A member of the RNA family "mir-1902 microRNA precursor family" from Suricata suricatta, 79 nucleotides long. The source organism's lineage runs through Eukaryota, Bilateria, Deuterostomia, Mammalia and Suricata. Its family is annotated with RISC complex and miRNA-mediated post-transcriptional gene silencing in the Gene Ontology.

RNA sequence: GUUUAUGUUGGGACUGUUUGCUGUAUCAUUGGAUUUAAUGAAAUGUUUAGAGGUGCAGUAAGCAGGACUUUGAGUAGAU
Numbered sequence: 001g002u003u004u005a006u007g008u009u010g011g012g013a014c015u016g017u018u019u020g021c022u023g024u025a026u027c028a029u030u031g032g033a034u035u036u037a038a039u040g041a042a043a044u045g046u047u048u049a050g051a052g053g054u055g056c057a058g059u060a061a062g063c064a065g066g067a068c069u070u071u072g073a074g075u076a077g078a079u
Stems, first nucleotide, its partner, number of pairs: 001079006008072001010070003014065013030049005